MIR390 microRNA precursor family: a 104-nucleotide RNA from Glycine max. The source organism's lineage runs through Eukaryota, Viridiplantae, fabids, Glycine and Glycine subgen. Soja.
[Rfam]
RNA sequence: UGGAAGAAUCUGUAAAGCUCAGGAGGGAUAGCGCCAUGGAUGAUCUCUUCUCCACUCUUGAUCUUCUCUUGCGCUAUCCAUCCUGAGUUUCAUGGCUUCUAUCC
Number, nucleotide and partner (000 for none) at each position: 001u000002g000003g000004a000005a000006g000007a000008a000009u000010c095011u000012g000013u000014a000015a000016a089017g088018c087019u086020c085021a084022g083023g082024a081025g000026g079027g078028a077029u076030a075031g074032c073033g072034c071035c000036a000037u000038g000039g000040a000041u000042g000043a000044u000045c000046u000047c000048u000049u000050c000051u000052c000053c000054a000055c000056u000057c000058u000059u000060g000061a000062u000063c000064u000065u000066c000067u000068c000069u000070u000071g034072c033073g032074c031075u030076a029077u028078c027079c026080a000081u024082c023083c022084u021085g020086a019087g018088u017089u016090u000091c000092a000093u000094g000095g010096c000097u000098u000099c000100u000101a000102u000103c000104c000